[Rfam]
RNA: HIV Ribosomal frameshift signal
Organism: Lentivirus humimdef1
RNA sequence: UUUUUUAGGGAAAAUCUGGCCUUUCCGCAGGGACAGGCCAGGGAACUUCCUU
Numbered sequence: 001u002u003u004u005u006u007a008g009g010g011a012a013a014a015u016c017u018g019g020c021c022u023u024u025c026c027g028c029a030g031g032g033a034c035a036g037g038c039c040a041g042g043g044a045a046c047u048u049c050c051u052u
Stems, first nucleotide, its partner, number of pairs: 008052003012048002015042008024033002
Dot-bracket structure: .......(((.((.((((((((.((......)).))))))))....)).)))